[Rfam]
Nucleotides: 600
Base pairs, nucleotide, nucleotide: 005022006021007020008019009018025597026596027595028594029593030592031591032590034589035588036587038584039583046418047417048416049415051414052413053410054409055408056407057406059215060214061213062212066207067206069204070203071202072201075178077176078175079174080173081172082171084169085168086167087166088165089164090163092161102160103159104158105157106156109143110142111141118137119136120135121134122133123132124131125130182195183194184193218230219229220228221227231253232252233251234250235249236248254399256356257355262314263313264312265311266310267309268294269293271289272288273287274286275285276284295304296303319342320341321340322339325336326335327334344353345352346351367393368392369391370390371389372388373387375386376385427468428467429466431465432462433461434460435459436458437457438456442452443451479554480552481551482550483549484546485543486542487541488540489539492517493516495512496511497510498509499508500507519533520532521531522530523529560578561577562576563575564573565572566571
Number, partner (000 for none) and nucleotide at each position: 001000u002000a003000g004000u005022a006021u007020c008019g009018g010000u011000g012000a013000a014000g015000a016000u017000g018009c019008c020007g021006g022005u023000u024000a025597c026596c027595c028594g029593c030592a031591g032590u033000g034589g035588g036587a037000c038584g039583a040000a041000a042000a043000g044000a045000c046418c047417c048416c049415g050000u051414g052413c053410a054409c055408c056407u057406u058000u059215a060214c061213u062212a063000u064000a065000g066207c067206u068000u069204c070203g071202u072201a073000u074000u075178g076000a077176c078175u079174u080173c081172g082171g083000u084169c085168a086167a087166g088165c089164a090163a091000u092161g093000u094000g095000u096000a097000g098000g099000a100000u101000a102160g103159c104158u105157g106156g107000g108000a109143g110142g111141c112000u113000u114000u115000g116000a117000a118137g119136c120135u121134g122133c123132a124131u125130c126000g127000c128000c129000a130125g131124g132123u133122g134121u135120g136119g137118u138000g139000g140000a141111g142110c143109c144000g145000u146000u147000g148000u149000u150000g151000a152000a153000a154000u155000a156106c157105c158104a159103g160102c161092c162000u163090u164089u165088g166087c167086u168085u169084g170000u171082c172081u173080g174079a175078a176077g177000c178075c179000u180000a181000a182195c183194u184193c185000c186000c187000u188000u189000a190000u191000g192000g193184g194183a195182g196000g197000a198000c199000a200000g201072u202071g203070c204069g205000u206067g207066g208000u209000g210000g211000g212062u213061a214060g215059u216000u217000u218230g219229a220228c221227u222000g223000g224000g225000g226000u227221g228220g229219u230218c231253g232252c233251c234250u235249c236248c237000a238000a239000a240000a241000g242000a243000g244000u245000a246000a247000c248236g249235g250234a251233g252232g253231c254399u255000u256356c257355u258000a259000a260000a261000g262314g263313u264312g265311c266310c267309c268294u269293c270000a271289a272288u273287a274286c275285g276284g277000u278000u279000g280000g281000c282000a283000a284276u285275c286274g287273u288272g289271u290000g291000c292000a293269g294268a295304g296303u297000g298000c299000a300000a301000u302000g303296g304295c305000a306000c307000a308000a309267g310266g311265g312264c313263g314262c315000u316000u317000g318000a319342c320341u321340g322339a323000g324000a325336g326335a327334c328000a329000u330000a331000c332000a333000g334327g335326u336325c337000g338000a339322u340321c341320a342319g343000g344353u345352a346351g347000g348000a349000a350000a351346c352345u353344a354000g355257a356256g357000c358000a359000u360000a361000g362000u363000g364000a365000u366000c367393c368392g369391g370390u371389g372388g373387u374000u375386c376385c377000g378000c379000a380000u381000g382000g383000a384000a385376g386375g387373g388372c389371c390370a391369u392368c393367g394000c395000u396000c397000a398000a399254a400000g401000g402000a403000u404000a405000a406057a407056a408055g409054g410053u411000a412000c413052g414051c415049c416048g417047g418046g419000g420000a421000u422000a423000a424000c425000a426000g427468g428467c429466u430000g431465a432462u433461c434460u435459c436458c437457c438456c439000c440000a441000a442452g443451a444000g445000c446000u447000c448000a449000u450000a451443u452442c453000g454000a455000c456438g457437g458436g459435g460434g461433g462432g463000u464000u465431u466429g467428g468427c469000a470000c471000c472000u473000c474000g475000a476000u477000g478000u479554c480552g481551g482550c483549u484546c485543g486542u487541c488540a489539c490000a491000u492517c493516c494000u495512g496511g497510g498509g499508c500507u501000g502000g503000a504000g505000a506000a507500g508499g509498u510497c511496c512495c513000a514000a515000g516493g517492g518000u519533u520532g521531g522530g523529c524000u525000g526000u527000u528000c529523g530522c531521c532520c533519a534000u535000u536000a537000a538000a539489g540488u541487g542486g543485c544000a545000c546484g547000c548000g549483a550482g551481c552480u553000g554479g555000g556000u557000u558000c559000a560578g561577a562576a563575c564573g565572u566571c567000g568000u569000g570000a571566g572565a573564c574000a575563g576562u577561u578560c579000g580000g581000u582000c583039u584038c585000u586000a587036u588035c589034u590032a591031c592030u593029g594028c595027g596026g597025g598000c599000g600000u
The family of this 600-nucleotide part of an RNA from Flagellimonas eckloniae is "Bacterial large subunit ribosomal RNA". Taxonomically the source falls in Flagellimonas (Bacteria, Flavobacteriia, Flavobacteriales, Flavobacteriaceae). The base pairs follow the family's consensus structure, which is taken from published work.